[Rfam]
RNA sequence: AUAAAAGGAGGUUCGACUAAAACCGUCAUAUCGUGUGACAACGUCGAAUGACUGG
Numbered sequence: 001a002u003a004a005a006a007g008g009a010g011g012u013u014c015g016a017c018u019a020a021a022a023c024c025g026u027c028a029u030a031u032c033g034u035g036u037g038a039c040a041a042c043g044u045c046g047a048a049u050g051a052c053u054g055g
Base pairs, nucleotide, nucleotide: 011049012048013047014046015045016044017043025039026038027037028036029035
This 55-nucleotide RNA from Pontibacillus yanchengensis belongs to the Rfam family "Bacillaceae-1 RNA". The family's consensus secondary structure is taken from published work.